RNA: MIR390 microRNA precursor family
Organism: Musa acuminata
RNA sequence: UGGAAGAAUCUGUAAAGCUCAGGAGGGAUAGCGCCAUAGAAGAUGAGGAAGGAACUCCCAAGUUCUCAUCCAAUGCGCUAUCCAUCCUGAGCUUCAUGGCUUCUCCUU
Numbered sequence: 001u002g003g004a005a006g007a008a009u010c011u012g013u014a015a016a017g018c019u020c021a022g023g024a025g026g027g028a029u030a031g032c033g034c035c036a037u038a039g040a041a042g043a044u045g046a047g048g049a050a051g052g053a054a055c056u057c058c059c060a061a062g063u064u065c066u067c068a069u070c071c072a073a074u075g076c077g078c079u080a081u082c083c084a085u086c087c088u089g090a091g092c093u094u095c096a097u098g099g100c101u102u103c104u105c106c107u108u
Stems, first nucleotide, its partner, number of pairs: 010099001016093009026083009